[Rfam]
RNA sequence: CCAGGGGCUCACGCCCCUGGCUACCUUCGACCGCCCCGAAGGGGCU
Dot-bracket structure: ((((((((....))))))))............(((((...))))).
Numbered sequence: 001c002c003a004g005g006g007g008c009u010c011a012c013g014c015c016c017c018u019g020g021c022u023a024c025c026u027u028c029g030a031c032c033g034c035c036c037c038g039a040a041g042g043g044g045c046u
Stems, first nucleotide, its partner, number of pairs: 001020008033045005